[Rfam]
RNA sequence: GCGAGGCAGGUGGGAAGCCUGCCCGUCGGAAGCCCAAGGUUUUCUGGGGAAGGCGAAUCCGCCCAGAGUUAGCCGGGGCCUAAGGCGAGGCCGAAAGGCGUAGCUGAUGGGUAUCAGGUUGAUAUUCCUGAGCCACCUGCCGGAGGUUAACCUACGGGGCGGGACGCAGGAGGAGCAGGCAACCGGGGUGUUGGUUGACCCCGGCCAAGCGGCGAGCGGGGGUGUGUAGGCAAAUCCGCACGCCCAUACAACCGUGAGCCGUGAUGGGGAGCCGAAGUUAUAGUAGGCGAAGUGCCGUGCUUCACACUGCCAAGAAAAGCGUCGCGUAGGCGAAGGCAGGUGCCCGUACUGGAAACCGACACAGGUGGGCGAGGAGAGUAUCCACAGACGGA
Number, nucleotide and partner (000 for none) at each position: 001g000002c000003g000004a000005g023006g022007c021008a020009g019010g018011u000012g000013g000014g000015a000016a000017g000018c010019c009020u008021g007022c006023c005024c390025g389026u388027c387028g000029g000030a000031a000032g370033c369034c368035c367036a000037a000038g350039g349040u000041u000042u000043u067044c066045u065046g064047g063048g062049g000050a000051a000052g060053g059054c000055g000056a000057a000058u000059c053060c052061g000062c048063c047064c046065a045066g044067a043068g000069u000070u000071a000072g000073c000074c346075g345076g344077g343078g000079c110080c109081u000082a000083a000084g105085g104086c103087g000088a101089g000090g099091c098092c097093g000094a000095a000096a000097g092098g091099c090100g000101u088102a000103g086104c085105u084106g000107a000108u000109g080110g079111g000112u000113a000114u131115c130116a129117g128118g127119u000120u000121g000122a000123u000124a000125u000126u000127c118128c117129u116130g115131a114132g000133c000134c342135a341136c340137c339138u338139g337140c336141c335142g000143g000144a000145g000146g000147u000148u000149a000150a000151c000152c000153u328154a327155c000156g000157g000158g323159g322160c321161g320162g000163g000164a000165c000166g310167c309168a308169g307170g000171a000172g303173g302174a301175g000176c000177a000178g296179g295180c294181a293182a000183c204184c203185g202186g201187g200188g199189u000190g000191u000192u000193g000194g000195u000196u000197g000198a000199c188200c187201c186202c185203g184204g183205c267206c266207a000208a000209g262210c261211g260212g259213c000214g000215a000216g255217c254218g253219g000220g000221g244222g243223u242224g241225u240226g239227u238228a000229g237230g236231c000232a000233a000234a000235u000236c230237c229238g227239c226240a225241c224242g223243c222244c221245c000246a000247u000248a000249c000250a000251a000252c000253c218254g217255u216256g000257a000258g000259c212260c211261g210262u209263g000264a000265u000266g206267g205268g000269g000270a000271g288272c287273c286274g000275a284276a000277g000278u000279u000280a000281u000282a000283g000284u275285a000286g273287g272288c271289g000290a000291a000292g000293u181294g180295c179296c178297g000298u000299g000300c000301u174302u173303c172304a000305c000306a000307c169308u168309g167310c166311c000312a000313a000314g000315a000316a000317a000318a000319g000320c161321g160322u159323c158324g000325c000326g000327u154328a153329g000330g000331c000332g000333a000334a000335g141336g140337c139338a138339g137340g136341u135342g134343c077344c076345c075346g074347u000348a000349c039350u038351g000352g000353a000354a000355a000356c365357c364358g000359a000360c000361a000362c000363a000364g357365g356366u000367g035368g034369g033370c032371g000372a000373g383374g382375a381376g000377a000378g000379u000380a000381u375382c374383c373384a000385c000386a000387g027388a026389c025390g024391g000392a000